The record is an 87-nucleotide RNA from Theileria cervi, which matches "Tick-borne Flavivirus exoribonuclease-resistant RNA element" in Rfam.
The organism belongs to Theileria, within Eukaryota.
About the family: The exoribonuclease-resistant RNA elements (xrRNA) are described throughout all groups of flaviviruses.
Rfam classes the family as a cis-regulatory element.
[Rfam]
RNA sequence: ACGACGAACUGUGGCAGCACACCAUUUGGUGACGGGAAGCUGGUCGCUCCCGACGCAGGCCGUCGUAAGAACUUUGUGAGACCAAAG
Numbered sequence: 001a002c003g004a005c006g007a008a009c010u011g012u013g014g015c016a017g018c019a020c021a022c023c024a025u026u027u028g029g030u031g032a033c034g035g036g037a038a039g040c041u042g043g044u045c046g047c048u049c050c051c052g053a054c055g056c057a058g059g060c061c062g063u064c065g066u067a068a069g070a071a072c073u074u075u076g077u078g079a080g081a082c083c084a085a086a087g
Base pairs, nucleotide, nucleotide: 001066002065003064004063005062006061009058010057011056012055013054020031021030022029023028033052034051035050036049037048